[Rfam]
RNA sequence: AAAAGAAAAGCCCUGGCACACAUAGGCGCCAGGGCUUCCUUCUACGCGCUUUUACAAACGCAGAAGGCAAAGGGAGAGGAGAAACCGGAGGAAGAACUUAUGGGGAAACGUAAGUCUUCUCCGCGG
Numbered sequence: 001a002a003a004a005g006a007a008a009a010g011c012c013c014u015g016g017c018a019c020a021c022a023u024a025g026g027c028g029c030c031a032g033g034g035c036u037u038c039c040u041u042c043u044a045c046g047c048g049c050u051u052u053u054a055c056a057a058a059c060g061c062a063g064a065a066g067g068c069a070a071a072g073g074g075a076g077a078g079g080a081g082a083a084a085c086c087g088g089a090g091g092a093a094g095a096a097c098u099u100a101u102g103g104g105g106a107a108a109c110g111u112a113a114g115u116c117u118u119c120u121c122c123g124c125g126g
Stems, first nucleotide, its partner, number of pairs: 009036009037074005046061003050057001086123004091119004096115005
The family of this 126-nucleotide RNA from Bacillus sp. FJAT-27986 is "ylbH leader". Lineage of the source: Bacteria > Bacillota > Bacilli > Bacillaceae > Bacillus. The match comes from Rfam's covariance-model search (101 bits). About the family: This family is a putative regulatory RNA structure that is found upstream of the ylbH gene in B. subtilis and related low GC Gram-positive bacteria. It is annotated as a cis-regulatory leader. The literature on the family includes a 2004 paper in Proc Natl Acad Sci U S A by Barrick et al., "New RNA motifs suggest an expanded scope for riboswitches in bacterial genetic control".